[Rfam]
RNA sequence: UUAAUAAUUAAAGCGCCUGUGCAAAAUACCUAAAUAGUUAUCAAGUAUUAAAAGUUAAAAUAGUAGAACUUUUAUAGAUAACGAUUUGGAUUUUGUAGACGAGGAGGAUAGUGAUCGAAUCAGAUCGGCGGAUGCUAUCCCGGAUGUGGCACAUUCGUUAGCUUAUUAAGUAAAUCAUUAAGGUGACUUAGUGGACAAAGUUAAUAAGAUCGCCAAAC
Numbered sequence: 001u002u003a004a005u006a007a008u009u010a011a012a013g014c015g016c017c018u019g020u021g022c023a024a025a026a027u028a029c030c031u032a033a034a035u036a037g038u039u040a041u042c043a044a045g046u047a048u049u050a051a052a053a054g055u056u057a058a059a060a061u062a063g064u065a066g067a068a069c070u071u072u073u074a075u076a077g078a079u080a081a082c083g084a085u086u087u088g089g090a091u092u093u094u095g096u097a098g099a100c101g102a103g104g105a106g107g108a109u110a111g112u113g114a115u116c117g118a119a120u121c122a123g124a125u126c127g128g129c130g131g132a133u134g135c136u137a138u139c140c141c142g143g144a145u146g147u148g149g150c151a152c153a154u155u156c157g158u159u160a161g162c163u164u165a166u167u168a169a170g171u172a173a174a175u176c177a178u179u180a181a182g183g184u185g186a187c188u189u190a191g192u193g194g195a196c197a198a199a200g201u202u203a204a205u206a207a208g209a210u211c212g213c214c215a216a217a218c
Stems, first nucleotide, its partner, number of pairs: 020097008029088001106140005115128004141157006162208007176193007
The family of this 218-nucleotide RNA sequence from Staphylococcus epidermidis is "glmS glucosamine-6-phosphate activated ribozyme aptamer". The base pairs follow the family's consensus structure, which is taken from published work. It is one of the family's seed sequences. Rfam classes the family as a riboswitch. Taxonomically the source falls in Staphylococcus (Bacteria, Bacilli, Caryophanales, Staphylococcaceae). About the family: This entry contains a glucosamine-6-phosphate activated ribozyme that is found in the mRNA for GlmS. GlmS is an enzyme that uses fructose-6-phosphate and glutamine to generate glucosamine-6-phosphate.